[Rfam]
RNA: SAM riboswitch aptamer (S box leader)
Organism: Clostridium cylindrosporum
RNA sequence: CUCUUAUUCAGAGUGGCUGAGGGAACUGGCCCUAUGACGCCCAGCAACCGGCAAUCGCUAAGGUGCUAAAUCCAGCAGCGUUUUCAUGCUGAAAGAUGAGAG
Numbered sequence: 001c002u003c004u005u006a007u008u009c010a011g012a013g014u015g016g017c018u019g020a021g022g023g024a025a026c027u028g029g030c031c032c033u034a035u036g037a038c039g040c041c042c043a044g045c046a047a048c049c050g051g052c053a054a055u056c057g058c059u060a061a062g063g064u065g066c067u068a069a070a071u072c073c074a075g076c077a078g079c080g081u082u083u084u085c086a087u088g089c090u091g092a093a094a095g096a097u098g099a100g101a102g
Stems, first nucleotide, its partner, number of pairs: 001102008013042001015041003021032003026075004043067004048063002050059003071094001076091006